The record is a 101-nucleotide RNA sequence from Thauera linaloolentis, which matches "SAH (S-adenosyl-L-homocysteine) riboswitch aptamer" in Rfam.
[Rfam]
RNA sequence: UCUUCCGAGGAGCGCUGCGAGGCGCCGGGCAAUUCAGCCCAGGCCCCCAGGCUCGGAAACCCGCGGGCAAGCCGCCGCGGUUCGAACGGCGCUCGCCCGAA
Numbered sequence: 001u002c003u004u005c006c007g008a009g010g011a012g013c014g015c016u017g018c019g020a021g022g023c024g025c026c027g028g029g030c031a032a033u034u035c036a037g038c039c040c041a042g043g044c045c046c047c048c049a050g051g052c053u054c055g056g057a058a059a060c061c062c063g064c065g066g067g068c069a070a071g072c073c074g075c076c077g078c079g080g081u082u083c084g085a086a087c088g089g090c091g092c093u094c095g096c097c098c099g100a101a
Stems, first nucleotide, its partner, number of pairs: 003058006021046002024044003
Description: The base pairs follow the family's consensus structure, which is taken from published work. Taxonomically the source falls in Thauera linaloolentis (Bacteria, Pseudomonadota, Betaproteobacteria, Zoogloeaceae).